[Rfam]
RNA sequence: GAAUGACCAGAAUACUUUCUUCAUAUAAUUUCGAUAAUAAGGUUCGAAAGUUUCUACCCGGCCACCGUAAAUGGCCGGACUAUGAAGGCAGUUUCGUGUACC
Numbered sequence: 001g002a003a004u005g006a007c008c009a010g011a012a013u014a015c016u017u018u019c020u021u022c023a024u025a026u027a028a029u030u031u032c033g034a035u036a037a038u039a040a041g042g043u044u045c046g047a048a049a050g051u052u053u054c055u056a057c058c059c060g061g062c063c064a065c066c067g068u069a070a071a072u073g074g075c076c077g078g079a080c081u082a083u084g085a086a087g088g089c090a091g092u093u094u095c096g097u098g099u100a101c102c
Base pairs, nucleotide, nucleotide: 018088019087020086021085022084023083024082025081029049030048031047032046033045034044058078059077060076061075062074063073064072
This 102-nucleotide RNA from Weizmannia acidilactici belongs to the Rfam family "Purine riboswitch aptamer". Its Rfam clan is "Purine riboswitches". NCBI's taxonomy places the organism under Bacteria, Bacilli, Caryophanales, Bacillaceae, Heyndrickxia. It scores 90 bits against the family's covariance model. The base pairs follow the family's consensus structure, which is taken from published work.